Nucleotides: 080
Stems, first nucleotide, its partner, number of pairs: 001015004007032005016023002034058005043076005
Number, partner (000 for none) and nucleotide at each position: 001015c002014u003013g004012c005000a006000g007032c008031c009030a010029g011028g012004g013003c014002a015001g016023c017022c018000c019000u020000c021000g022017g023016g024000a025000a026000g027000g028011c029010c030009u031008g032007g033000a034058c035057a036056c037055u038054g039000a040000u041000a042000c043076g044075c045074c046073g047072g048000c049000a050000a051000g052000u053000g054038c055037a056036g057035u058034g059000c060000u061000a062000c063000g064000a065000g066000a067000a068000a069000a070000c071000a072047c073046c074045g075044g076043c077000a078000g079000c080000c